[Rfam]
A member of the RNA family "Y RNA" from Colobus angolensis, 96 nucleotides long. It is annotated as a non-coding RNA gene. Y RNAs are components of the Ro ribonucleoprotein particle (Ro RNP), in association with Ro60 and La proteins. The Y RNAs and Ro60 and La proteins are well conserved, but the function of the Ro RNP is not known. Pairs were carried over by alignment from the consensus structure, which is taken from published work.
Nucleotides: 096
Stems, first nucleotide, its partner, number of pairs: 001092007010084001014079001015075005033061003037057002
Number, partner (000 for none) and nucleotide at each position: 001092a002091g003090c004089u005088g006087g007086u008000a009000c010084a011000a012000u013000a014079u015075a016074g017073u018072g019071g020000a021000u022000u023000a024000u025000c026000a027000g028000a029000a030000c031000u032000u033061u034060a035059c036000c037057a038056a039000c040000a041000u042000u043000a044000g045000u046000g047000u048000c049000a050000c051000g052000a053000a054000a055000g056038u057037u058000g059035g060034u061033a062000u063000a064000c065000c066000a067000u068000c069000u070000c071019c072018c073017a074016c075015u076000g077000c078000u079014a080000a081000a082000u083000g084010u085000g086007a087006c088005u089004g090003g091002c092001u093000u094000a095000u096000u